[Rfam]
RNA sequence: CUGUGGCCUGUGACCUUCCCUUUGUCAUCCUAUGCCUGGUGUUUGAUGGGGCUGGGACGAUAAGGGGGUGUUCAUCUGUCAUUGCU
Dot-bracket structure: ................((((((.((..(((((.((((...........)))))))))..)).))))))..................
Numbered sequence: 001c002u003g004u005g006g007c008c009u010g011u012g013a014c015c016u017u018c019c020c021u022u023u024g025u026c027a028u029c030c031u032a033u034g035c036c037u038g039g040u041g042u043u044u045g046a047u048g049g050g051g052c053u054g055g056g057a058c059g060a061u062a063a064g065g066g067g068g069u070g071u072u073c074a075u076c077u078g079u080c081a082u083u084g085c086u
Stems, first nucleotide, its partner, number of pairs: 017068006024061002028057005034052004
A member of the RNA family "mir-204 microRNA precursor family" from Scyliorhinus torazame, 86 nucleotides long. Pairs were carried over by alignment from the consensus structure, which was predicted with RNAalifold. The source organism's lineage runs through Eukaryota, Gnathostomata, Elasmobranchii, Scyliorhinidae and Scyliorhinus. On this family, see Gu et al., FEBS Lett 2007: "Identification and characterization of microRNAs from the bovine adipose tissue and mammary gland".